[Rfam]
tRNA: a 74-nucleotide RNA sequence from Corynebacterium frankenforstense.
RNA sequence: GCCCCCAUGGCCCAAUUGGCAGAGGCAACGGACUUAAAAUCCGUGAGUUCUGGGUUCGACUCCCAGUGGGGGCA
Numbered sequence: 001g002c003c004c005c006c007a008u009g010g011c012c013c014a015a016u017u018g019g020c021a022g023a024g025g026c027a028a029c030g031g032a033c034u035u036a037a038a039a040u041c042c043g044u045g046a047g048u049u050c051u052g053g054g055u056u057c058g059a060c061u062c063c064c065a066g067u068g069g070g071g072g073c074a
Base pairs, nucleotide, nucleotide: 001073002072003071004070005069006068007067010026011025012024028044029043030042031041032040050066051065052064053063054062